[Rfam]
RNA sequence: ACCAAUAUAGUCCAGAGGUCAGGAUGUCGGAUUUUCAAUCCUUUGAUUGGAAAAUCUCCGAAGACCCGGGUUCAAACCCUGGUAUCGGUA
Numbered sequence: 001a002c003c004a005a006u007a008u009a010g011u012c013c014a015g016a017g018g019u020c021a022g023g024a025u026g027u028c029g030g031a032u033u034u035u036c037a038a039u040c041c042u043u044u045g046a047u048u049g050g051a052a053a054a055u056c057u058c059c060g061a062a063g064a065c066c067c068g069g070g071u072u073c074a075a076a077c078c079c080u081g082g083u084a085u086c087g088g089u090a
Stems, first nucleotide, its partner, number of pairs: 001089003005085003010025004027061005066082005
The record is a 90-nucleotide RNA from Byssothecium circinans, which matches "tRNA" in Rfam.
Rfam classes the family as a transfer RNA.
Pairs were carried over by alignment from the consensus structure, which is taken from published work.
Lineage of the source: Eukaryota > Opisthokonta > Pezizomycotina > Pleosporales > Byssothecium.